[Rfam]
RNA: Bacterial small signal recognition particle RNA
RNA sequence: UUUUCGGUUCCUCGCAAUAGUGUCCGAUUUACUCGGUCAGGUUCGGAAGAAAGCAGCCAAAGUCGGAAUUUCUGUGUGCCGAGAUCCUGCCGGAAAGGU
Numbered sequence: 001u002u003u004u005c006g007g008u009u010c011c012u013c014g015c016a017a018u019a020g021u022g023u024c025c026g027a028u029u030u031a032c033u034c035g036g037u038c039a040g041g042u043u044c045g046g047a048a049g050a051a052a053g054c055a056g057c058c059a060a061a062g063u064c065g066g067a068a069u070u071u072c073u074g075u076g077u078g079c080c081g082a083g084a085u086c087c088u089g090c091c092g093g094a095a096a097g098g099u
Base pairs, nucleotide, nucleotide: 004093005092006091007090008089011083012082013081014080015076017075018074019073020072022070023067024066025065026064027063028062029061033060035058036057037056042051043050044049